[Rfam]
RNA sequence: CUUGCUACGAUUCCUUAUCAUUCUUUGGCCCAGUGAUUAUUUUAUACAGCUGGACGGAGAACUGAUAAGGGCUUGUGGAAGG
Numbered sequence: 001c002u003u004g005c006u007a008c009g010a011u012u013c014c015u016u017a018u019c020a021u022u023c024u025u026u027g028g029c030c031c032a033g034u035g036a037u038u039a040u041u042u043u044a045u046a047c048a049g050c051u052g053g054a055c056g057g058a059g060a061a062c063u064g065a066u067a068a069g070g071g072c073u074u075g076u077g078g079a080a081g082g
Base pairs, nucleotide, nucleotide: 012071013070014069015068016067017066018065019064020063021061022060023059024058025057026056029053030052
This 82-nucleotide RNA sequence from Bemisia tabaci belongs to the Rfam family "mir-184 microRNA precursor family". The family's consensus secondary structure was predicted with PFOLD. Rfam links the family to the GO terms gene silencing by miRNA and RISC complex. A reference for the family is Chen et al. (2005), "The developmental miRNA profiles of zebrafish as determined by small RNA cloning", Genes Dev.